[Rfam]
epsC RNA: a 118-nucleotide RNA from Aneurinibacillus migulanus. By type it is a cis-regulatory element.
RNA sequence: AGGUGAUACCUACAACACCUUUAUCAAUAUAGGUACUCGAUCAUGCUGUGGGAGAAAUUGUGAAACUCCUUAGAUAUAAAUUAUCAAUGGUGUGAUGUGAGGGUGGGUUAGAUGCCCU
Numbered sequence: 001a002g003g004u005g006a007u008a009c010c011u012a013c014a015a016c017a018c019c020u021u022u023a024u025c026a027a028u029a030u031a032g033g034u035a036c037u038c039g040a041u042c043a044u045g046c047u048g049u050g051g052g053a054g055a056a057a058u059u060g061u062g063a064a065a066c067u068c069c070u071u072a073g074a075u076a077u078a079a080a081u082u083a084u085c086a087a088u089g090g091u092g093u094g095a096u097g098u099g100a101g102g103g104u105g106g107g108u109u110a111g112a113u114g115c116c117c118u
Base pairs, nucleotide, nucleotide: 001020002019003018004017007035008034009033010032011031012030036101037100038099039098040096041095042094043093044092045091046090047089050070051069052068053067054066073085074084075083076082105117106116107115108114
Dot-bracket structure: [[[[..((((((....]]]].........))))))((((((((((((..(((((...........)))))..((((.....))))...)))))))).))))...((((.....)))).